[Rfam]
This 47-nucleotide RNA belongs to the Rfam family "DUF3800-XI RNA". Rfam's curators write: Actinobacteria, Firmicutes, Proteobacteria, Spirochaetes (1 example). The family's RNA type in Rfam is small RNA.
RNA sequence: AGGGCUGGUCGAAAGACCCUGGUCCUUCACAGGCGGGAUUGUGUCCC
Numbered sequence: 001a002g003g004g005c006u007g008g009u010c011g012a013a014a015g016a017c018c019c020u021g022g023u024c025c026u027u028c029a030c031a032g033g034c035g036g037g038a039u040u041g042u043g044u045c046c047c
Stems, first nucleotide, its partner, number of pairs: 001026006007018004
Dot-bracket structure: ((((((((((....))))..)))))).....................